[Rfam]
Staphylococcus sRNA sau-5949: a 58-nucleotide RNA sequence from Staphylococcus aureus. The sequence is in the family's curated seed alignment. For this family Rfam cites "Identification of differentially expressed small non-protein-coding RNAs in Staphylococcus aureus displaying both the normal and the small-colony variant phenotype" (Abu-Qatouseh et al., J Mol Med (Berl), 2010). The family's RNA type in Rfam is small RNA. The family has 7 seed sequences and 40 matches in Rfam 15.1.
RNA sequence: UUGUCUCCUUUAGUUUGGGUUUGGUCACUUUAAAUUAUAGAGGCAAUUGCGCUUUUUG
Numbered sequence: 001u002u003g004u005c006u007c008c009u010u011u012a013g014u015u016u017g018g019g020u021u022u023g024g025u026c027a028c029u030u031u032a033a034a035u036u037a038u039a040g041a042g043g044c045a046a047u048u049g050c051g052c053u054u055u056u057u058g
Stems, first nucleotide, its partner, number of pairs: 001046007011037006019028002